Annotation: Shown here is a 91-nucleotide RNA sequence from Camellia sinensis, a member of the family "Small nucleolar RNA snoR27". The match comes from Rfam's covariance-model search (63 bits). Rfam 15.1 lists 649 matches to the family in 212 species. Pairs were carried over by alignment from the consensus structure, which was predicted with WAR. Taxonomically the source falls in Camellia sinensis (Eukaryota, Spermatophyta, Gunneridae, Pentapetalae). A reference for the family is Brown et al. (2001), "Multiple snoRNA gene clusters from Arabidopsis", RNA.
[Rfam]
RNA sequence: UAGGAUCAAUGAUGAUUGAUAAAAACUAUGUUAUCUAUCUGUAAUUCCCUUUAAAGGGAUUGAAGAUAUUCAUAUUAUUCUUAGAUCCAUU
Numbered sequence: 001u002a003g004g005a006u007c008a009a010u011g012a013u014g015a016u017u018g019a020u021a022a023a024a025a026c027u028a029u030g031u032u033a034u035c036u037a038u039c040u041g042u043a044a045u046u047c048c049c050u051u052u053a054a055a056g057g058g059a060u061u062g063a064a065g066a067u068a069u070u071c072a073u074a075u076u077a078u079u080c081u082u083a084g085a086u087c088c089a090u091u
Base pairs, nucleotide, nucleotide: 002090003088004087005086006085